[Rfam]
RNA sequence: UGUAAGUAUUUUACGAUUUAGAAACAAUUGUUUCUUGUACAGGUUGUGUAUUAAUCU
Dot-bracket structure: .................(.((((((....)))))).)....................
The record is a 57-nucleotide RNA from Gossypium australe, which matches "Plastid-rps18 3UTR RNA" in Rfam. It scores 72 bits against the family's covariance model. From the family's description: Plastid rps18 is a non-coding RNA (ncRNA) present in plastids. It was identified as a short stem-loop motif in the 3 prime untranslate region (3UTR) of rps18 gene. The family's RNA type in Rfam is cis-regulatory element.